[Rfam]
RNA sequence: GGCCUCCCUCUGUGGGGCGAUUGAUCAUGGGACCCCCAGAUAGAUUGCCGUGCAGAGGGAGGCC
Numbered sequence: 001g002g003c004c005u006c007c008c009u010c011u012g013u014g015g016g017g018c019g020a021u022u023g024a025u026c027a028u029g030g031g032a033c034c035c036c037c038a039g040a041u042a043g044a045u046u047g048c049c050g051u052g053c054a055g056a057g058g059g060a061g062g063c064c
Stems, first nucleotide, its partner, number of pairs: 001064014016049007024041003029036002